FMN riboswitch aptamer (RFN element): a 177-nucleotide RNA sequence from Propionispora vibrioides.
[Rfam]
RNA sequence: AUAUAUCUUCGGGGCAGGGUGAAAUUCCCAACCGGUGGUAAGCAGUUUUCGCUGCAAGCCCACGAGCCGUAAUACUAUUCUUCUAUAAAGCGUGAUGGUUUUAAUGGGAGAGUAGUAUAAGGCAGACUUGGUGUGAUUCCAAGGCCGACAGUACAGUCUGGAUGAAAGAAGAUAAAA
Numbered sequence: 001a002u003a004u005a006u007c008u009u010c011g012g013g014g015c016a017g018g019g020u021g022a023a024a025u026u027c028c029c030a031a032c033c034g035g036u037g038g039u040a041a042g043c044a045g046u047u048u049u050c051g052c053u054g055c056a057a058g059c060c061c062a063c064g065a066g067c068c069g070u071a072a073u074a075c076u077a078u079u080c081u082u083c084u085a086u087a088a089a090g091c092g093u094g095a096u097g098g099u100u101u102u103a104a105u106g107g108g109a110g111a112g113u114a115g116u117a118u119a120a121g122g123c124a125g126a127c128u129u130g131g132u133g134u135g136a137u138u139c140c141a142a143g144g145c146c147g148a149c150a151g152u153a154c155a156g157u158c159u160g161g162a163u164g165a166a167a168g169a170a171g172a173u174a175a176a177a
Stems, first nucleotide, its partner, number of pairs: 004174007017029003031157002033147002035063004058145002066123003127143005149160003
About this RNA:
Pairs were carried over by alignment from the consensus structure, which is taken from published work.